[Rfam]
The record is a 127-nucleotide sequence from Heterocephalus glaber, which matches "Small nucleolar RNA SNORA63" in Rfam. Rfam classes the family as an H/ACA-box small nucleolar RNA. About the family: E3 belongs to the H/ACA class of snoRNAs and is involved in the processing of eukaryotic pre-rRNA and has regions of complementarity to 18S rRNA. E3 is encoded in introns in the gene for protein synthesis initiation factor 4AII.
RNA sequence: AUGCAGGUAAAGUUACAAUAUAACUGAAGUGUUUUAUUGUCGUUCCCCCUGCUUAAAGUAUUUGAUGCAUUACUAUCUCUGUCUAGCUCUAUUCCGUGGUAAGACAGAGACGCUUGGUCUCAAACAU
Numbered sequence: 001a002u003g004c005a006g007g008u009a010a011a012g013u014u015a016c017a018a019u020a021u022a023a024c025u026g027a028a029g030u031g032u033u034u035u036a037u038u039g040u041c042g043u044u045c046c047c048c049c050u051g052c053u054u055a056a057a058g059u060a061u062u063u064g065a066u067g068c069a070u071u072a073c074u075a076u077c078u079c080u081g082u083c084u085a086g087c088u089c090u091a092u093u094c095c096g097u098g099g100u101a102a103g104a105c106a107g108a109g110a111c112g113c114u115u116g117g118u119c120u121c122a123a124a125c126a127u
Base pairs, nucleotide, nucleotide: 003052004051005050006049007048015040016039017038018037019036020035022033023032024031078108079107080106081105083103084102086100087099